RNA sequence: GAAUCACGGUUGAAACAAGAUUUAUCAUGAGAAGUCAGCAGAGGUCAUAGUACCAGCAUGGAUGUACAUACUGGGAAGGAC
Numbered sequence: 001g002a003a004u005c006a007c008g009g010u011u012g013a014a015a016c017a018a019g020a021u022u023u024a025u026c027a028u029g030a031g032a033a034g035u036c037a038g039c040a041g042a043g044g045u046c047a048u049a050g051u052a053c054c055a056g057c058a059u060g061g062a063u064g065u066a067c068a069u070a071c072u073g074g075g076a077a078g079g080a081c
Stems, first nucleotide, its partner, number of pairs: 001022002004020002008016001010014001035042002044081003053074004058069001

Rfam assigns this 81-nucleotide RNA from Sinanaerobacter chloroacetimidivorans to the family "Group II catalytic intron D1-D4-1". It scores 52 bits against the family's covariance model. Gene Ontology term of the family: Group II intron splicing. Rfam 15.1 lists 2,508 matches to the family in 1,144 species. From the family's description: Group II introns are found in rRNA, tRNA and mRNA of organelles in fungi, plants and protists, and also in mRNA in bacteria. Taxonomically the source falls in Sinanaerobacter (Bacteria, Clostridia, Peptostreptococcales, Anaerovoracaceae). On this family, see Bonen and Vogel, Trends Genet 2001: "The ins and outs of group II introns".